[Rfam]
RNA sequence: CUCUUCCAUGUAAAGAACUAUGCUAAAAUUGUGAAAGCGGGGUUAUCUUAGCUUUGGCAAUAAUGCUAGCAUGGUAUAAGGUGGAAGGAGAGUAUUUGCACUGAUCCACAAAUGAGAUGAGGUCGGACCUCUUUCUUAAUGUCCAGUGUUCUCUGUCUCAGGGUCCAGUGCCACAUGC
Dot-bracket structure: .................((.(((((..((((..((.((.(((....))).)).)).....))))..))))).)).......................((((((................(.(..(((..............)))..).)................)))))).......
Shown here is a 178-nucleotide sequence from Scleropages formosus, a member of the family "Small nucleolar RNA SNORA81". For this family Rfam cites "A novel experimental approach for systematic identification of box H/ACA snoRNAs from eukaryotes" (Gu et al., Nucleic Acids Res, 2005). Lineage of the source: Eukaryota > Opisthokonta > Bilateria > Deuterostomia > Scleropages. Gene Ontology terms of the family: nucleolus and RNA processing. It scores 101 bits against the family's covariance model.